[Rfam]
RNA sequence: GACGACGACGCGGGGUGCCGCUCGCGCAGAGCGCAGCGGCUGAGAUCACACCCGUCGAACCUGAUCUAGUUCGUACUAGCGAAGGGAACGUCGAUGUCGGCCAUG
Numbered sequence: 001g002a003c004g005a006c007g008a009c010g011c012g013g014g015g016u017g018c019c020g021c022u023c024g025c026g027c028a029g030a031g032c033g034c035a036g037c038g039g040c041u042g043a044g045a046u047c048a049c050a051c052c053c054g055u056c057g058a059a060c061c062u063g064a065u066c067u068a069g070u071u072c073g074u075a076c077u078a079g080c081g082a083a084g085g086g087a088a089c090g091u092c093g094a095u096g097u098c099g100g101c102c103a104u105g
Base pairs, nucleotide, nucleotide: 006093007092008091009090010089011054012053013052014051016048017040018039019038020037021036060085061084062083066079067078068077069076
RNA: TPP riboswitch aptamer (THI element)